Small nucleolar RNA U54: an 83-nucleotide RNA sequence from Oryza punctata. About the family: U54 is a C/D box small nucleolar RNA, which acts as a methylation guide for 18S ribosomal RNA in plants. The source organism's lineage runs through Eukaryota, Streptophytina, Spermatophyta, Oryzinae and Oryza. For this family Rfam cites "The high diversity of snoRNAs in plants: identification and comparative study of 120 snoRNA genes from Oryza sativa" (Chen et al., Nucleic Acids Res, 2003). Pairs were carried over by alignment from the consensus structure, which was predicted with PFOLD. A search with the family's covariance model found it, with a score of 51 bits. Clan: U54 clan. The family's RNA type in Rfam is C/D-box small nucleolar RNA. Rfam links the family to the GO terms RNA processing and nucleolus.
RNA sequence: AGUCUUGUAUGAUUGCAGCCGCUUUCUUUGGCAAUAUGCGCUAUGCUGACCAUAGUUUGAUGAUGAAUGAGAAUACGAGAACU
Numbered sequence: 001a002g003u004c005u006u007g008u009a010u011g012a013u014u015g016c017a018g019c020c021g022c023u024u025u026c027u028u029u030g031g032c033a034a035u036a037u038g039c040g041c042u043a044u045g046c047u048g049a050c051c052a053u054a055g056u057u058u059g060a061u062g063a064u065g066a067a068u069g070a071g072a073a074u075a076c077g078a079g080a081a082c083u
Base pairs, nucleotide, nucleotide: 001083002082003081005079